[Rfam]
RNA: SmY spliceosomal RNA
RNA sequence: CGAUUGAUAACUUAUAGCUCAGGGCCUUGCAAAAGACCCGUUGAGAGUUUUUGGCGAGCCUAAUUCUAAUGAAUUGGGCCU
Numbered sequence: 001c002g003a004u005u006g007a008u009a010a011c012u013u014a015u016a017g018c019u020c021a022g023g024g025c026c027u028u029g030c031a032a033a034a035g036a037c038c039c040g041u042u043g044a045g046a047g048u049u050u051u052u053g054g055c056g057a058g059c060c061u062a063a064u065u066c067u068a069a070u071g072a073a074u075u076g077g078g079c080c081u
Stems, first nucleotide, its partner, number of pairs: 022039003026035003058079005064073003